The family of this 171-nucleotide RNA from Granulosicoccus antarcticus is "Group II catalytic intron D1-D4-3".
[Rfam]
RNA sequence: GCAAGGGCGACCAAGCGUGGGGAGGAAGUGUCUAGCGAAACCACGAGCCGAUGAACAAGAACCGAAUAUUGAGGCGUUAUCAACCAGGGCGAGCGGGCCUAUCAUCGCGAAGCUCUUGUGGUCAAAGGGAGAUAAUGUAGAUUCGGCGGUUGUGUGGGGAAGGAUUGCAGU
Numbered sequence: 001g002c003a004a005g006g007g008c009g010a011c012c013a014a015g016c017g018u019g020g021g022g023a024g025g026a027a028g029u030g031u032c033u034a035g036c037g038a039a040a041c042c043a044c045g046a047g048c049c050g051a052u053g054a055a056c057a058a059g060a061a062c063c064g065a066a067u068a069u070u071g072a073g074g075c076g077u078u079a080u081c082a083a084c085c086a087g088g089g090c091g092a093g094c095g096g097g098c099c100u101a102u103c104a105u106c107g108c109g110a111a112g113c114u115c116u117u118g119u120g121g122u123c124a125a126a127g128g129g130a131g132a133u134a135a136u137g138u139a140g141a142u143u144c145g146g147c148g149g150u151u152g153u154g155u156g157g158g159g160a161a162g163g164a165u166u167g168c169a170g171u
Stems, first nucleotide, its partner, number of pairs: 001016002005012002028171002032167001036163001041157005046151005062146006074138003078134004084128001087115004093108004